[Rfam]
RNA sequence: CCUUAAGGGGCAAGUCUCGUACGGCCAGCUCCCUCUGAAUCCCCCAGGACCGGAAGGUAGCAAGGGUAAGAGGUUGUAGCGGCGCGAUGCGAGUAGCUUGCUCCUUU
Numbered sequence: 001c002c003u004u005a006a007g008g009g010g011c012a013a014g015u016c017u018c019g020u021a022c023g024g025c026c027a028g029c030u031c032c033c034u035c036u037g038a039a040u041c042c043c044c045c046a047g048g049a050c051c052g053g054a055a056g057g058u059a060g061c062a063a064g065g066g067u068a069a070g071a072g073g074u075u076g077u078a079g080c081g082g083c084g085c086g087a088u089g090c091g092a093g094u095a096g097c098u099u100g101c102u103c104c105u106u107u
Stems, first nucleotide, its partner, number of pairs: 008103008017092005022086002024083002
A member of the RNA family "Bacteroidales small SRP" from a Cryomorphaceae bacterium, 107 nucleotides long. Its Rfam clan is "SRP clan". A reference for the family is Ryan et al. (2020), "A high-resolution transcriptome map identifies small RNA regulation of metabolism in the gut microbe Bacteroides thetaiotaomicron", Nat Commun. NCBI's taxonomy places the organism under Bacteria, Bacteroidota, Flavobacteriia, Flavobacteriales, Cryomorphaceae. The family's RNA type in Rfam is non-coding RNA gene. Rfam links the family to the GO terms signal recognition particle, plasma membrane targeting and SRP-dependent cotranslational protein targeting to membrane, signal sequence recognition.